Record summary
This 82-nucleotide sequence from Alligator sinensis belongs to the Rfam family "Mammalian CPEB3 ribozyme". The family's consensus secondary structure is taken from published work. It scores 35 bits against the family's covariance model.
RNA sequence: AGAGAUCACAAGUUUGAGGCCAUAGUAAAACUGCUUAUGAUGCACGGUCCUGUUAGAUUUCAGCAAAUCUGCGAAUUCUGCU
Numbered sequence: 001a002g003a004g005a006u007c008a009c010a011a012g013u014u015u016g017a018g019g020c021c022a023u024a025g026u027a028a029a030a031c032u033g034c035u036u037a038u039g040a041u042g043c044a045c046g047g048u049c050c051u052g053u054u055a056g057a058u059u060u061c062a063g064c065a066a067a068u069c070u071g072c073g074a075a076u077u078c079u080g081c082u
Base pairs, nucleotide, nucleotide: 016050018049019048020047021046024082025081026080027079029077030076032044033043054071055070056069057068058067059066060065